RNA: FMN riboswitch aptamer (RFN element)
RNA sequence: CACCAUUCUCAGGGCGGGGCGAAAUUCCCCACCGGCGGUAUGCGGGCUUGCCCGUGAGCCCGCGAGCGCCUUUCGGUUGCGAAAGGGUCAGCAGAUCAGGUGCGAUGCCUGAGCCGACGGUCAUAGUCCGGAUGAAAGAGAAUGCGC
Dot-bracket structure: ...(((((((......(((.......))).[[((((((...................[[))))..((.......................))...(((((.......)))))]])).(((.....]]))).......)))))))...